[Rfam]
RNA sequence: CAGGCAUGCUGGAGCUUCGCAGCGGCGCCUGGGCGUUUGCCCGACACCGUAACCAAAUCGAAGCUUAU
Numbered sequence: 001c002a003g004g005c006a007u008g009c010u011g012g013a014g015c016u017u018c019g020c021a022g023c024g025g026c027g028c029c030u031g032g033g034c035g036u037u038u039g040c041c042c043g044a045c046a047c048c049g050u051a052a053c054c055a056a057a058u059c060g061a062a063g064c065u066u067a068u
Stems, first nucleotide, its partner, number of pairs: 012066008023049003030043004
RNA: ybhL leader